[Rfam]
RNA sequence: UCGCUUGGAAUUUCCGCCUUGAGGGUCUAUUUUAAAAGGGCUGUAAAGCUAUGGCGAUAAACGCAUUGUGGAAUAGGCAGAGCGGACCCGGGGGCAGUGCCCGGCGCCUCCACCAUUAAAAGGCACCGGCAAGGGGCUUAUUCUAUGGGGGCGAACCAGGAUCGACGCAUGUAGUAAAGGCACUGUUUUCGCUCGGCAUGGUACCACCGACAUCGGGCCGUUGAGUAGUUGCAAAUGACAACACUGCUCCGGUUGCUGUCGCUGCUUAAUUGCAGUCACAAAAACCAAAUUAAAGUCCAGUAGGUUGAGCCCUGCUGGCGGGGUCUUGGGCGCACCUGGCAACAGAAGCGUCCUCU
Numbered sequence: 001u002c003g004c005u006u007g008g009a010a011u012u013u014c015c016g017c018c019u020u021g022a023g024g025g026u027c028u029a030u031u032u033u034a035a036a037a038g039g040g041c042u043g044u045a046a047a048g049c050u051a052u053g054g055c056g057a058u059a060a061a062c063g064c065a066u067u068g069u070g071g072a073a074u075a076g077g078c079a080g081a082g083c084g085g086a087c088c089c090g091g092g093g094g095c096a097g098u099g100c101c102c103g104g105c106g107c108c109u110c111c112a113c114c115a116u117u118a119a120a121a122g123g124c125a126c127c128g129g130c131a132a133g134g135g136g137c138u139u140a141u142u143c144u145a146u147g148g149g150g151g152c153g154a155a156c157c158a159g160g161a162u163c164g165a166c167g168c169a170u171g172u173a174g175u176a177a178a179g180g181c182a183c184u185g186u187u188u189u190c191g192c193u194c195g196g197c198a199u200g201g202u203a204c205c206a207c208c209g210a211c212a213u214c215g216g217g218c219c220g221u222u223g224a225g226u227a228g229u230u231g232c233a234a235a236u237g238a239c240a241a242c243a244c245u246g247c248u249c250c251g252g253u254u255g256c257u258g259u260c261g262c263u264g265c266u267u268a269a270u271u272g273c274a275g276u277c278a279c280a281a282a283a284a285c286c287a288a289a290u291u292a293a294a295g296u297c298c299a300g301u302a303g304g305u306u307g308a309g310c311c312c313u314g315c316u317g318g319c320g321g322g323g324u325c326u327u328g329g330g331c332g333c334a335c336c337u338g339g340c341a342a343c344a345g346a347a348g349c350g351u352c353c354u355c356u
Base pairs, nucleotide, nucleotide: 040049041048042047053193054192055191056190057189063186064185065184067182068181069180078171079170082168083167084166088104089103090102091101092100105153106152107151108150109149110148111147194209195208196207199220200219201218204216205215321337322336323335324334328353329352330351331350332349333348
RNA: Alphaproteobacteria transfer-messenger RNA